[Rfam]
Source information
The family of this 144-nucleotide sequence from Digitaria exilis is "MIR6234 microRNA precursor family". The base pairs follow the family's consensus structure, which was predicted with RNAalifold.
RNA sequence: CUCUUUAUGUGUGUAAGUGUGUUCCUCUAUUUGACGCUAAAGAUGGAUGCUCCAAACAAAGCACUCCACAAGUGUUGCUGCCUCCGUUUGUAGUAUUCUUACUUUAGCGUCAAGAGACGAACACACUCGGGCACCGAAAGUGAU
Numbered sequence: 001c002u003c004u005u006u007a008u009g010u011g012u013g014u015a016a017g018u019g020u021g022u023u024c025c026u027c028u029a030u031u032u033g034a035c036g037c038u039a040a041a042g043a044u045g046g047a048u049g050c051u052c053c054a055a056a057c058a059a060a061g062c063a064c065u066c067c068a069c070a071a072g073u074g075u076u077g078c079u080g081c082c083u084c085c086g087u088u089u090g091u092a093g094u095a096u097u098c099u100u101a102c103u104u105u106a107g108c109g110u111c112a113a114g115a116g117a118c119g120a121a122c123a124c125a126c127u128c129g130g131g132c133a134c135c136g137a138a139a140g141u142g143a144u
Stems, first nucleotide, its partner, number of pairs: 002143002004140003008136002014129001016127009026117003030114013044101001045098006053090003061081003064077001067074002